Shown here is an 86-nucleotide RNA sequence from Salarias fasciatus, a member of the family "Small nucleolar RNA SNORD60". Its family is annotated with nucleolus and RNA processing in the Gene Ontology. It is annotated as a C/D-box small nucleolar RNA. Lineage of the source: Eukaryota > Bilateria > Vertebrata > Blenniimorphae > Salarias. A reference for the family is Galardi et al. (2002), "Purified box C/D snoRNPs are able to reproduce site-specific 2'-O-methylation of target RNA in vitro", Mol Cell Biol. A search with the family's covariance model found it, with a score of 56 bits.

RNA sequence: AGCCAGUGAUGACAAACCCAACUUUUCUGACACCUCUUAUGAGAGCCACGCCGUGGCUCCUUGAUUCUACUGCUGAUCUGAGGCCC
Numbered sequence: 001a002g003c004c005a006g007u008g009a010u011g012a013c014a015a016a017c018c019c020a021a022c023u024u025u026u027c028u029g030a031c032a033c034c035u036c037u038u039a040u041g042a043g044a045g046c047c048a049c050g051c052c053g054u055g056g057c058u059c060c061u062u063g064a065u066u067c068u069a070c071u072g073c074u075g076a077u078c079u080g081a082g083g084c085c086c
Stems, first nucleotide, its partner, number of pairs: 002084003045057005